A member of the RNA family "FMN riboswitch aptamer (RFN element)" from Bacillus benzoevorans, 148 nucleotides long. Rfam describes the family as follows. The RFN element is a highly conserved domain that is found frequently in the 5'-untranslated regions of prokaryotic mRNAs that encode for flavin mononucleotide (FMN) biosynthesis and transport proteins. Pairs were carried over by alignment from the consensus structure, which is taken from published work. Gene Ontology term of the family: FMN binding.
RNA sequence: ACAAUCCUUCGGGGCUGGGUGUAAUUCCCAACCGGCGGUGAUGAGGUGAUCGAGCCUCUUAGUCCGUGACCCGGUUUCAUAUUUGAAAACGGUGGAUUUGGUGAAAUUCCAAAACCGACAGUUAAAGUCUGGAUGGGAGAAGGAUACG
Numbered sequence: 001a002c003a004a005u006c007c008u009u010c011g012g013g014g015c016u017g018g019g020u021g022u023a024a025u026u027c028c029c030a031a032c033c034g035g036c037g038g039u040g041a042u043g044a045g046g047u048g049a050u051c052g053a054g055c056c057u058c059u060u061a062g063u064c065c066g067u068g069a070c071c072c073g074g075u076u077u078c079a080u081a082u083u084u085g086a087a088a089a090c091g092g093u094g095g096a097u098u099u100g101g102u103g104a105a106a107u108u109c110c111a112a113a114a115c116c117g118a119c120a121g122u123u124a125a126a127g128u129c130u131g132g133a134u135g136g137g138a139g140a141a142g143g144a145u146a147c148g
Base pairs, nucleotide, nucleotide: 004145005144006143007142008141009140010139017029018028019027031128032127033117034116035067036066037065038064062115063114071092072091097113098112099111100110101109119131120130121129